[Rfam]
RNA sequence: GACCUAAACCGUACCUUGUGCGGCAUGGUUGAAUAAUCCACAAAGAGAAACAGCUCGUCAUGAGUACUUCUCUUUGUGGUCGCGUUGGGAAACCUUCGCGGGUGGUCGAAAGACUGCC
Numbered sequence: 001g002a003c004c005u006a007a008a009c010c011g012u013a014c015c016u017u018g019u020g021c022g023g024c025a026u027g028g029u030u031g032a033a034u035a036a037u038c039c040a041c042a043a044a045g046a047g048a049a050a051c052a053g054c055u056c057g058u059c060a061u062g063a064g065u066a067c068u069u070c071u072c073u074u075u076g077u078g079g080u081c082g083c084g085u086u087g088g089g090a091a092a093c094c095u096u097c098g099c100g101g102g103u104g105g106u107c108g109a110a111a112g113a114c115u116g117c118c
Stems, first nucleotide, its partner, number of pairs: 001030004009023006038079011053065004081100004087094002101118006
The record is a 118-nucleotide sequence, which matches "LOOT RNA" in Rfam. Rfam classes the family as a small RNA.